[Rfam]
RNA sequence: AUCAUCGGCAUUCCUACCAGUACAACCUGCUUGCACACCAUCUUUCAUGAUGCUCAAAGCAGGUGGGAAAUUCGGUGGAACACAGCGAAAUAACUUGCGAUGUACUUGUACAUCUGGGUUAGUACCAAAAGGCUACUUUUGUAGACUUGUUUCUCGUGAGAGAACUUCACUGGAAAGUGAGUGUUGGUCGCUGCUAUCAGAAAUAUACACGCCUUGGCGUGAUGGGAAUGGCAGCGGAUGUUUCGUUUGACUUUGUCUCUUCAAAACUGAGAUUCAAAGGUCUGUUGAGUGCAAUGGUAGGAGAACGCACUUUAUCGUGCGUUUAACCCGAUACCGAUUAUUGUCGAUGUU
Numbered sequence: 001a002u003c004a005u006c007g008g009c010a011u012u013c014c015u016a017c018c019a020g021u022a023c024a025a026c027c028u029g030c031u032u033g034c035a036c037a038c039c040a041u042c043u044u045u046c047a048u049g050a051u052g053c054u055c056a057a058a059g060c061a062g063g064u065g066g067g068a069a070a071u072u073c074g075g076u077g078g079a080a081c082a083c084a085g086c087g088a089a090a091u092a093a094c095u096u097g098c099g100a101u102g103u104a105c106u107u108g109u110a111c112a113u114c115u116g117g118g119u120u121a122g123u124a125c126c127a128a129a130a131g132g133c134u135a136c137u138u139u140u141g142u143a144g145a146c147u148u149g150u151u152u153c154u155c156g157u158g159a160g161a162g163a164a165c166u167u168c169a170c171u172g173g174a175a176a177g178u179g180a181g182u183g184u185u186g187g188u189c190g191c192u193g194c195u196a197u198c199a200g201a202a203a204u205a206u207a208c209a210c211g212c213c214u215u216g217g218c219g220u221g222a223u224g225g226g227a228a229u230g231g232c233a234g235c236g237g238a239u240g241u242u243u244c245g246u247u248u249g250a251c252u253u254u255g256u257c258u259c260u261u262c263a264a265a266a267c268u269g270a271g272a273u274u275c276a277a278a279g280g281u282c283u284g285u286u287g288a289g290u291g292c293a294a295u296g297g298u299a300g301g302a303g304a305a306c307g308c309a310c311u312u313u314a315u316c317g318u319g320c321g322u323u324u325a326a327c328c329c330g331a332u333a334c335c336g337a338u339u340a341u342u343g344u345c346g347a348u349g350u351u
Stems, first nucleotide, its partner, number of pairs: 001351001003349002007345003012302007025064005039052004073336005083240002151164005165181001167180005189236007208221003303324007